Nucleotides: 035
Stems, first nucleotide, its partner, number of pairs: 001035004007030002010028001012027005017021001
Number, partner (000 for none) and nucleotide at each position: 001035a002034g003033g004032u005000g006000g007030c008029u009000u010028g011000c012027u013026u014025c015024a016023a017021c018000a019000g020000u021017g022000c023016u024015u025014g026013a027012a028010c029008g030007g031000a032004a033003c034002c035001u
The record is a 35-nucleotide sequence from Acipenser ruthenus, which matches "Iron response element I" in Rfam. Its family is annotated with response to iron ion in the Gene Ontology. For this family Rfam cites "Identification of the iron-responsive element for the translational regulation of human ferritin mRNA" (Hentze et al., Science, 1987). A search with the family's covariance model found it, with a score of 44 bits.